[Rfam]
RNA sequence: CCACCCGAGGAGCGUUGCGACGGCCCCGGCAGGACGCACCCCGUCCCGCCGCGAACCGCCAGGCUCGGGUCGUCCAUCCAACAGCGCUCACCCGAC
Numbered sequence: 001c002c003a004c005c006c007g008a009g010g011a012g013c014g015u016u017g018c019g020a021c022g023g024c025c026c027c028g029g030c031a032g033g034a035c036g037c038a039c040c041c042c043g044u045c046c047c048g049c050c051g052c053g054a055a056c057c058g059c060c061a062g063g064c065u066c067g068g069g070u071c072g073u074c075c076a077u078c079c080a081a082c083a084g085c086g087c088u089c090a091c092c093c094g095a096c
Stems, first nucleotide, its partner, number of pairs: 003070006021058003026053001
RNA: SAH (S-adenosyl-L-homocysteine) riboswitch aptamer